[Rfam]
RNA sequence: UGGUGGCGGUGGUACAGGGGAUUGAUCUCAGGACCUUGCGCUUUCGAGGCAGGUGGCGGGACCACUGAGCUAAAUCCCUGGCCCCUGAUG
Numbered sequence: 001u002g003g004u005g006g007c008g009g010u011g012g013u014a015c016a017g018g019g020g021a022u023u024g025a026u027c028u029c030a031g032g033a034c035c036u037u038g039c040g041c042u043u044u045c046g047a048g049g050c051a052g053g054u055g056g057c058g059g060g061a062c063c064a065c066u067g068a069g070c071u072a073a074a075u076c077c078c079u080g081g082c083c084c085c086u087g088a089u090g
Stems, first nucleotide, its partner, number of pairs: 004087001006085001008084002011082001018079003027069003035060005
The family of this 90-nucleotide RNA sequence from Heterocephalus glaber is "NoRC associated RNA, pRNA". The base pairs follow the family's consensus structure, which is taken from published work. On this family, see Mayer et al., EMBO Rep 2008: "The structure of NoRC-associated RNA is crucial for targeting the chromatin remodelling complex NoRC to the nucleolus".